[Rfam]
RNA sequence: CAGUUAAACGUCCGUAGUCUGUACGUCGUCCCAAACUCACUGCAGUCUUGCGUCUUCUUCACUGAAUGCGCAAGUAUCUGCAGUCACUCCCUUGAUCAAAUUAGGUUGUUCAAGGUAGACAGAGGCUUCAUAUUUUCACAUGGAAUUGGGUGAGGGAACUUAAGAGUUUAAGUUUCUCGUCUUAGGAUCAUCCGGGGUCAUUCGUACUCGUCCGCGAGAGGUGGAAUUCUUGGACCGGGCGAAGACGACCAGCAGCGAAAGCAUCUGUCAGGGAUGUUUUCUGCGACAAAGGACGAAGGCCAGGGUAUCGAAGACGAUUAGAUACCGUCGUAGUCCUGACUGUAAACUAUGCCAACUUGGGUCUUGCUGGGCUAAUGCUUUGUGAGACCCACACAGAAAUGAAAGUGUAUGGGUUCUGGGGGUAGUAUGGACACAAGUCUGAAACUUGAAGGAAU
Numbered sequence: 001c002a003g004u005u006a007a008a009c010g011u012c013c014g015u016a017g018u019c020u021g022u023a024c025g026u027c028g029u030c031c032c033a034a035a036c037u038c039a040c041u042g043c044a045g046u047c048u049u050g051c052g053u054c055u056u057c058u059u060c061a062c063u064g065a066a067u068g069c070g071c072a073a074g075u076a077u078c079u080g081c082a083g084u085c086a087c088u089c090c091c092u093u094g095a096u097c098a099a100a101u102u103a104g105g106u107u108g109u110u111c112a113a114g115g116u117a118g119a120c121a122g123a124g125g126c127u128u129c130a131u132a133u134u135u136u137c138a139c140a141u142g143g144a145a146u147u148g149g150g151u152g153a154g155g156g157a158a159c160u161u162a163a164g165a166g167u168u169u170a171a172g173u174u175u176c177u178c179g180u181c182u183u184a185g186g187a188u189c190a191u192c193c194g195g196g197g198u199c200a201u202u203c204g205u206a207c208u209c210g211u212c213c214g215c216g217a218g219a220g221g222u223g224g225a226a227u228u229c230u231u232g233g234a235c236c237g238g239g240c241g242a243a244g245a246c247g248a249c250c251a252g253c254a255g256c257g258a259a260a261g262c263a264u265c266u267g268u269c270a271g272g273g274a275u276g277u278u279u280u281c282u283g284c285g286a287c288a289a290a291g292g293a294c295g296a297a298g299g300c301c302a303g304g305g306u307a308u309c310g311a312a313g314a315c316g317a318u319u320a321g322a323u324a325c326c327g328u329c330g331u332a333g334u335c336c337u338g339a340c341u342g343u344a345a346a347c348u349a350u351g352c353c354a355a356c357u358u359g360g361g362u363c364u365u366g367c368u369g370g371g372c373u374a375a376u377g378c379u380u381u382g383u384g385a386g387a388c389c390c391a392c393a394c395a396g397a398a399a400u401g402a403a404a405g406u407g408u409a410u411g412g413g414u415u416c417u418g419g420g421g422g423u424a425g426u427a428u429g430g431a432c433a434c435a436a437g438u439c440u441g442a443a444a445c446u447u448g449a450a451g452g453a454a455u
Stems, first nucleotide, its partner, number of pairs: 001418003008415001010294004017287003185281003189276005197269001199267002203247002208242007218229003255262002299340001301338004309333001313329004351414003355406002358391003363386005369380002394401002420447003429440004
RNA: Eukaryotic small subunit ribosomal RNA, nucleotides 551 to 1005
Organism: uncultured marine eukaryote